[Rfam]
RNA sequence: CUCGCCAAGCCCCUUAACAAUGCUCAAAUAGGCGGGU
Number, nucleotide and partner (000 for none) at each position: 001c036002u035003c034004g033005c032006c031007a000008a024009g023010c022011c000012c000013c000014u000015u000016a000017a000018c000019a000020a000021u000022g010023c009024u008025c000026a000027a000028a000029u000030a000031g006032g005033c004034g003035g002036g001037u000

A member of the RNA family "abiF RNA", 37 nucleotides long. It is annotated as a small RNA. Actinobacteria, Bacteroidetes, Clostridia, Proteobacteria, one Clostridia phage. The sequence is in the family's curated seed alignment.